RNA sequence: UAAAAAGAAUCAAGUAGUGCUUAUAUAGGUUCAUAAUCGGAUGGACGUCUCUACCAACUACCGGAAUAGUUGACUAUAAGUAUCUGCAAAGGGUAA
Number, nucleotide and partner (000 for none) at each position: 001u000002a000003a000004a000005a000006a000007g000008a000009a000010u000011c000012a000013a000014g000015u000016a000017g000018u082019g081020c080021u079022u078023a077024u076025a075026u000027a000028g000029g046030u045031u044032c043033a042034u041035a000036a000037u000038c000039g000040g000041a034042u033043g032044g031045a030046c029047g000048u000049c000050u000051c000052u000053a000054c000055c072056a071057a070058c069059u068060a067061c000062c000063g000064g000065a000066a000067u060068a059069g058070u057071u056072g055073a000074c000075u025076a024077u023078a022079a021080g020081u019082a018083u000084c000085u000086g000087c000088a000089a000090a000091g000092g000093g000094u000095a000096a000
RNA: Purine riboswitch aptamer
Organism: Clostridium sp. C105KSO13